[Rfam]
RNA sequence: GUGAAUGAAAUCACAAACAACCUUAUACCCCUUUGUUUGACCGUGAAAAAUUUCUCCCAUCCCCUUUGUUGUCUUAAUGACAAUAAAACGAAAAGAUCCGACUUUGGUCGGAUCUUUUCG
Numbered sequence: 001g002u003g004a005a006u007g008a009a010a011u012c013a014c015a016a017a018c019a020a021c022c023u024u025a026u027a028c029c030c031c032u033u034u035g036u037u038u039g040a041c042c043g044u045g046a047a048a049a050a051u052u053u054c055u056c057c058c059a060u061c062c063c064c065u066u067u068g069u070u071g072u073c074u075u076a077a078u079g080a081c082a083a084u085a086a087a088a089c090g091a092a093a094a095g096a097u098c099c100g101a102c103u104u105u106g107g108u109c110g111g112a113u114c115u116u117u118u119c120g
Stems, first nucleotide, its partner, number of pairs: 003054003011046004018039003022035001025034001070088001073079001092117011

Source information:
The record is a 120-nucleotide RNA sequence from Anoxybacteroides amylolyticum, which matches "RNA Staph. aureus E (RoxS)" in Rfam. Taxonomically the source falls in Anoxybacteroides (Bacteria, Bacilli, Caryophanales, Anoxybacillaceae). It was shown to be regulated by the presence of nitric oxide (NO). In Bacillus subtilis it controls expression of genes with functions related to oxidative stress and oxidation-reduction reactions and it was renamed RoxS (for related to oxidative stress). It is annotated as a small RNA. It scores 82 bits against the family's covariance model.